The record is a 73-nucleotide sequence from Rathayibacter tritici, which matches "tRNA" in Rfam.
Its family is annotated with triplet codon-amino acid adaptor activity in the Gene Ontology.
Clan: tRNA clan.
RNA sequence: GCCGACGUGGCGCAACUGGUAGCGCACCCGACUUGUAAUCGGGCGGUUACGGGUUCAAGUCCCGUCGUCGGCU
Number, nucleotide and partner (000 for none) at each position: 001g072002c071003c070004g069005a068006c067007g066008u000009g000010g025011c024012g023013c022014a000015a000016c000017u000018g000019g000020u000021a000022g013023c012024g011025c010026a000027c043028c042029c041030g040031a039032c000033u000034u000035g000036u000037a000038a000039u031040c030041g029042g028043g027044c000045g000046g000047u000048u000049a065050c064051g063052g062053g061054u000055u000056c000057a000058a000059g000060u000061c053062c052063c051064g050065u049066c007067g006068u005069c004070g003071g002072c001073u000
Source information
Rfam describes the family as follows. Transfer RNA (tRNA) molecules are approximately 80 nucleotides in length.